[Rfam]
RNA sequence: GGUGGCGUGUCCGAGCGGCCGAAGGUGCGACUCUCGAAAAGUCGUGUGCGGUAACCCCGCACCGCGGGUUCAAAUCCCGCCGCCACCG
Numbered sequence: 001g002g003u004g005g006c007g008u009g010u011c012c013g014a015g016c017g018g019c020c021g022a023a024g025g026u027g028c029g030a031c032u033c034u035c036g037a038a039a040a041g042u043c044g045u046g047u048g049c050g051g052u053a054a055c056c057c058c059g060c061a062c063c064g065c066g067g068g069u070u071c072a073a074a075u076c077c078c079g080c081c082g083c084c085a086c087c088g
Stems, first nucleotide, its partner, number of pairs: 001087007011025002028044005064080005

A member of the RNA family "tRNA" from Canibacter oris, 88 nucleotides long. It is annotated as a transfer RNA. It scores 48 bits against the family's covariance model. The organism belongs to Canibacter, within Bacteria.